[Rfam]
RNA sequence: CUCUUAUCAAGAGAGGUGGAGGGACUGGCCCGAUGAAACCCGGCAACCGCUAAGUAAGCAUUUUACUUAGGAAGGUGCCAAUUCCUGCAGAGCAAAGAGCUUUGAAAGAUGAGAU
Numbered sequence: 001c002u003c004u005u006a007u008c009a010a011g012a013g014a015g016g017u018g019g020a021g022g023g024a025c026u027g028g029c030c031c032g033a034u035g036a037a038a039c040c041c042g043g044c045a046a047c048c049g050c051u052a053a054g055u056a057a058g059c060a061u062u063u064u065a066c067u068u069a070g071g072a073a074g075g076u077g078c079c080a081a082u083u084c085c086u087g088c089a090g091a092g093c094a095a096a097g098a099g100c101u102u103u104g105a106a107a108g109a110u111g112a113g114a115u
Base pairs, nucleotide, nucleotide: 002114003113004112005111006110007109008108013041015040016039017038021031022030023029025087027085028084042079043078044077045076047075048074050070051069052068053067054066055065056064083107088104089103090102091101092100093099
Shown here is a 115-nucleotide RNA sequence from Anaerobacillus alkalidiazotrophicus, a member of the family "SAM riboswitch aptamer (S box leader)". Lineage of the source: Bacteria > Bacillati > Bacillota > Caryophanales > Anaerobacillus.